[Rfam]
This 73-nucleotide sequence from Bifidobacterium choloepi belongs to the Rfam family "Transposase-2 RNA". Pairs were carried over by alignment from the consensus structure, which is taken from published work. The family's RNA type in Rfam is small RNA. Lineage of the source: Bacteria > Actinomycetes > Bifidobacteriales > Bifidobacteriaceae > Bifidobacterium.
RNA sequence: GAAACGCGAACCAAGCAGAACCAUCAGCGUUCAUAAGACUUGGAGCCUCCCCACCGCAAGGCGAGGGAGUACA
Numbered sequence: 001g002a003a004a005c006g007c008g009a010a011c012c013a014a015g016c017a018g019a020a021c022c023a024u025c026a027g028c029g030u031u032c033a034u035a036a037g038a039c040u041u042g043g044a045g046c047c048u049c050c051c052c053a054c055c056g057c058a059a060g061g062c063g064a065g066g067g068a069g070u071a072c073a
Base pairs, nucleotide, nucleotide: 011043012042013041014040015039018032019031020030021029047069048068049067050066051065054061055060